The family of this 166-nucleotide RNA sequence from Bacillus velezensis is "M-box riboswitch aptamer (ykoK leader)".
Rfam's curators put it in the seed alignment.
For this family Rfam cites "New RNA motifs suggest an expanded scope for riboswitches in bacterial genetic control" (Barrick et al., Proc Natl Acad Sci U S A, 2004).
NCBI's taxonomy places the organism under Bacteria, Bacillati, Bacillaceae, Bacillus, Bacillus velezensis.
M-box riboswitch, also know as ykoK leader is described as a metaloregulatory RNA that sense divalent metals and function as a genetic control element of genes related to divalent metal transport in bacteria. It was first reported upstream of the B.subtilis ykoK gene and genes with related functions in other bacteria.

[Rfam]
RNA sequence: UAAGAACUUCGUUAGGUGAGGCUCCUGUAUGGAGAUACGCUGCUGCCCAAAAAUGUCCAAAGACGCCAAUGGGUCAACAGGAAUCAUCGACAUAAGGUGAUUCUUAACGCAGCUGGAUGGCUGUCCUAUGCCAUACAGUGCUAAAGCUCUACGAUUGGAGGCCCCG
Numbered sequence: 001u002a003a004g005a006a007c008u009u010c011g012u013u014a015g016g017u018g019a020g021g022c023u024c025c026u027g028u029a030u031g032g033a034g035a036u037a038c039g040c041u042g043c044u045g046c047c048c049a050a051a052a053a054u055g056u057c058c059a060a061a062g063a064c065g066c067c068a069a070u071g072g073g074u075c076a077a078c079a080g081g082a083a084u085c086a087u088c089g090a091c092a093u094a095a096g097g098u099g100a101u102u103c104u105u106a107a108c109g110c111a112g113c114u115g116g117a118u119g120g121c122u123g124u125c126c127u128a129u130g131c132c133a134u135a136c137a138g139u140g141c142u143a144a145a146g147c148u149c150u151a152c153g154a155u156u157g158g159a160g161g162c163c164c165c166g
Base pairs, nucleotide, nucleotide: 007160008159009158010157011152012151013095015148016147017146020142021141022140025138026137027136028135029134030133031132032131039113040112041111042110043109045074046073047072048071049070054065055064056063057062080104081103082102083101086098087097088096115126116125117124